[Rfam]
A member of the RNA family "U2 spliceosomal RNA" from Jaculus jaculus, 192 nucleotides long.
The base pairs follow the family's consensus structure, which is taken from published work.
On this family, see Thomas et al., Nucleic Acids Res 1990: "The spliceosomal snRNAs of Caenorhabditis elegans".
By type it is a spliceosomal small nuclear RNA.
NCBI's taxonomy places the organism under Eukaryota, Gnathostomata, Dipodoidea, Dipodidae, Jaculus.
RNA sequence: AUCACUUAUCGGCCUUUUGGCUAAGAUCAAGUGUAGUAUCUGUUCUUAUCAGUUCAAUAUCUGAUAUGUCCUCUAUCCAAGAACAAUAUAUUAAAUGGAUUUUUUGGAGCUUGGAGUUGGAAUAGGAGCUUGCUCUGUCCACUCCAUGCAUCGACCUGGUAUUGUAGUACUUCCAGGAACGGUGCACCCCUU
Numbered sequence: 001a002u003c004a005c006u007u008a009u010c011g012g013c014c015u016u017u018u019g020g021c022u023a024a025g026a027u028c029a030a031g032u033g034u035a036g037u038a039u040c041u042g043u044u045c046u047u048a049u050c051a052g053u054u055c056a057a058u059a060u061c062u063g064a065u066a067u068g069u070c071c072u073c074u075a076u077c078c079a080a081g082a083a084c085a086a087u088a089u090a091u092u093a094a095a096u097g098g099a100u101u102u103u104u105u106g107g108a109g110c111u112u113g114g115a116g117u118u119g120g121a122a123u124a125g126g127a128g129c130u131u132g133c134u135c136u137g138u139c140c141a142c143u144c145c146a147u148g149c150a151u152c153g154a155c156c157u158g159g160u161a162u163u164g165u166a167g168u169a170c171u172u173c174c175a176g177g178a179a180c181g182g183u184g185c186a187c188c189c190c191u192u
Stems, first nucleotide, its partner, number of pairs: 007026001009024001011022004047066006068084002071081002113145005119139002125136004148185006155177005